Rfam assigns this 43-nucleotide RNA sequence from Shigella dysenteriae to the family "ES036 (CssrF) sRNA". By type it is a small RNA. The literature on the family includes a 2015 paper in BMC Genomics by Rau et al., "Differential expression of small RNAs under chemical stress and fed-batch fermentation in E. coli". The family has 4 seed sequences and 273 matches in Rfam 15.1. Differentially expressed under several chemical stress conditions. Also identified in Shigella as CssrF.
RNA sequence: AAAAUCGUGAAAACUCAAUAUAUUGCAGGAACUCCGUAUGCCU
Numbered sequence: 001a002a003a004a005u006c007g008u009g010a011a012a013a014c015u016c017a018a019u020a021u022a023u024u025g026c027a028g029g030a031a032c033u034c035c036g037u038a039u040g041c042c043u
Stems, first nucleotide, its partner, number of pairs: 005030002008027002011024002